[Rfam]
RNA sequence: CCGCAUAUAAUUCGGGUUUCGGGAUGACGGAACCGUGAUUAAAUUGGUUCGUUGUCGACGAAACCUGCAAAAUGUGCGG
Dot-bracket structure: ((((((......(((((((((........(((((...........)))))........)))))))))......))))))

Annotation:
A member of the RNA family "mir-981 microRNA precursor family" from Helicoverpa armigera, 79 nucleotides long. For this family Rfam cites "Evolution, biogenesis, expression, and target predictions of a substantially expanded set of Drosophila microRNAs" (Ruby et al., Genome Res, 2007). The source organism's lineage runs through Eukaryota, Amphiesmenoptera, Heteroneura, Ditrysia and Helicoverpa. The family's consensus secondary structure was predicted with RNAalifold. Rfam links the family to the GO terms RISC complex and miRNA-mediated post-transcriptional gene silencing.